[Rfam]
RNA sequence: AAACACUCCAAAGAUUCGCCUUGCGGAGCUUUACUUUUGUGCCACUUUUGCUGGAGCAGAUGUAAAAGCUCUGGGAAAAGUCCCCAGACAAAUCUGGCAGAAAGUGCCAAUACCCUAAACCUUGGGGGUAAUCCGUAUCAUUGAGCUUGAUGUCGUGUUUCGAGGGUCCGCUUAUAAAUGGCCAAGAAUAUCCAAGGAGAAUCGCCUUUAUUAUUGAUUUUCUUUUGGAUUAGCAGAAUCGUUCUGGUUUUGGUAUUUCGAGUCGUGAAGUGUGUUUCUUCUGUCAGCAAUGUUGGUGGGAAUAGACUUUGGGUUGUUACUUUGCAAAGACCAAGCCACCUUGUUGUGGGAGAGCAGAGUAGCUAACUAGACUUGAAUUACAGCUGGUUCUUGGUUCUGGUGUGGUGAUAUUUCAUCCGUCUUGGAUCCAUACCCUUGCACGAUGCACUUUGGUACAAUGUCGUAACACAGUUAUGCGGAUCACGCAAGCAUUCGAUGUAUUUAUAUAUCAGGAUGUUUUGCGUUGAACUCAAUGGGGCUUACUCUUGGAAUGUU
Numbered sequence: 001a002a003a004c005a006c007u008c009c010a011a012a013g014a015u016u017c018g019c020c021u022u023g024c025g026g027a028g029c030u031u032u033a034c035u036u037u038u039g040u041g042c043c044a045c046u047u048u049u050g051c052u053g054g055a056g057c058a059g060a061u062g063u064a065a066a067a068g069c070u071c072u073g074g075g076a077a078a079a080g081u082c083c084c085c086a087g088a089c090a091a092a093u094c095u096g097g098c099a100g101a102a103a104g105u106g107c108c109a110a111u112a113c114c115c116u117a118a119a120c121c122u123u124g125g126g127g128g129u130a131a132u133c134c135g136u137a138u139c140a141u142u143g144a145g146c147u148u149g150a151u152g153u154c155g156u157g158u159u160u161c162g163a164g165g166g167u168c169c170g171c172u173u174a175u176a177a178a179u180g181g182c183c184a185a186g187a188a189u190a191u192c193c194a195a196g197g198a199g200a201a202u203c204g205c206c207u208u209u210a211u212u213a214u215u216g217a218u219u220u221u222c223u224u225u226u227g228g229a230u231u232a233g234c235a236g237a238a239u240c241g242u243u244c245u246g247g248u249u250u251u252g253g254u255a256u257u258u259c260g261a262g263u264c265g266u267g268a269a270g271u272g273u274g275u276u277u278c279u280u281c282u283g284u285c286a287g288c289a290a291u292g293u294u295g296g297u298g299g300g301a302a303u304a305g306a307c308u309u310u311g312g313g314u315u316g317u318u319a320c321u322u323u324g325c326a327a328a329g330a331c332c333a334a335g336c337c338a339c340c341u342u343g344u345u346g347u348g349g350g351a352g353a354g355c356a357g358a359g360u361a362g363c364u365a366a367c368u369a370g371a372c373u374u375g376a377a378u379u380a381c382a383g384c385u386g387g388u389u390c391u392u393g394g395u396u397c398u399g400g401u402g403u404g405g406u407g408a409u410a411u412u413u414c415a416u417c418c419g420u421c422u423u424g425g426a427u428c429c430a431u432a433c434c435c436u437u438g439c440a441c442g443a444u445g446c447a448c449u450u451u452g453g454u455a456c457a458a459u460g461u462c463g464u465a466a467c468a469c470a471g472u473u474a475u476g477c478g479g480a481u482c483a484c485g486c487a488a489g490c491a492u493u494c495g496a497u498g499u500a501u502u503u504a505u506a507u508a509u510c511a512g513g514a515u516g517u518u519u520u521g522c523g524u525u526g527a528a529c530u531c532a533a534u535g536g537g538g539c540u541u542a543c544u545c546u547u548g549g550a551a552u553g554u555u
Stems, first nucleotide, its partner, number of pairs: 002555004007550005014481006022074001024073009078541003082538004096108004109132001111130006381452003387448002390445001392443001394441002397438001399434007483524006
RNA: RNase MRP